[Rfam]
RNA sequence: CUAGGAGAGGUUCGCAAACUCCCUCGUUAAAAAACUAAGGAAAA
Numbered sequence: 001c002u003a004g005g006a007g008a009g010g011u012u013c014g015c016a017a018a019c020u021c022c023c024u025c026g027u028u029a030a031a032a033a034a035c036u037a038a039g040g041a042a043a044a
Stems, first nucleotide, its partner, number of pairs: 007025004016036001